RNA sequence: GGUUUUGGAGUGGAGCUCCUUGAAGUCCAAUAGAGGAUCUUAGCGGGGGAAGAUAGAGCUGCUGACCUAUGGAUCCCUCAGCCCUAUCCCAUCUUUGGAGUUUUGCGUGGAUAGGAUUGUGGCUUGCAUAUGUCAGGAGCUGCAUUACCUCAUGUUAGAUCCUUCUUUGGAUUGAAGGGAGCUCUACACUUUUGACUU
Numbered sequence: 001g002g003u004u005u006u007g008g009a010g011u012g013g014a015g016c017u018c019c020u021u022g023a024a025g026u027c028c029a030a031u032a033g034a035g036g037a038u039c040u041u042a043g044c045g046g047g048g049g050a051a052g053a054u055a056g057a058g059c060u061g062c063u064g065a066c067c068u069a070u071g072g073a074u075c076c077c078u079c080a081g082c083c084c085u086a087u088c089c090c091a092u093c094u095u096u097g098g099a100g101u102u103u104u105g106c107g108u109g110g111a112u113a114g115g116a117u118u119g120u121g122g123c124u125u126g127c128a129u130a131u132g133u134c135a136g137g138a139g140c141u142g143c144a145u146u147a148c149c150u151c152a153u154g155u156u157a158g159a160u161c162c163u164u165c166u167u168u169g170g171a172u173u174g175a176a177g178g179g180a181g182c183u184c185u186a187c188a189c190u191u192u193u194g195a196c197u198u
Base pairs, nucleotide, nucleotide: 013184014183015182016181017180018179019178020177024173025172026171027170028169029168036161059139060138062136063135064134068130069129070128071127076122

This 198-nucleotide RNA from Coffea canephora belongs to the Rfam family "MIR159 microRNA precursor family". Rfam links the family to the GO terms miRNA-mediated post-transcriptional gene silencing and RISC complex. It scores 123 bits against the family's covariance model. The organism belongs to Coffea, within Eukaryota. The literature on the family includes a 2004 paper in Mol Cell by Jones-Rhoades and Bartel, "Computational identification of plant microRNAs and their targets, including a stress-induced miRNA". The family's consensus secondary structure was predicted with WAR.